[Rfam]
RNA sequence: UUGGAAUCAUGGGCAGUGUCCCAUAUUUUGA
Numbered sequence: 001u002u003g004g005a006a007u008c009a010u011g012g013g014c015a016g017u018g019u020c021c022c023a024u025a026u027u028u029u030g031a
Base pairs, nucleotide, nucleotide: 001031002030003029004028005027006026007025009024010023011022012021013020014018
RNA: Iron response element II